[Rfam]
RNA sequence: GUGCUAUGAUGACACUCAACUGUGGUUUCCUCAAACCGAUUAUUGAAUGAGGACAUCUAAUUCCUUGGCUGUGUCUGAGCGU
Numbered sequence: 001g002u003g004c005u006a007u008g009a010u011g012a013c014a015c016u017c018a019a020c021u022g023u024g025g026u027u028u029c030c031u032c033a034a035a036c037c038g039a040u041u042a043u044u045g046a047a048u049g050a051g052g053a054c055a056u057c058u059a060a061u062u063c064c065u066u067g068g069c070u071g072u073g074u075c076u077g078a079g080c081g082u
Stems, first nucleotide, its partner, number of pairs: 001082004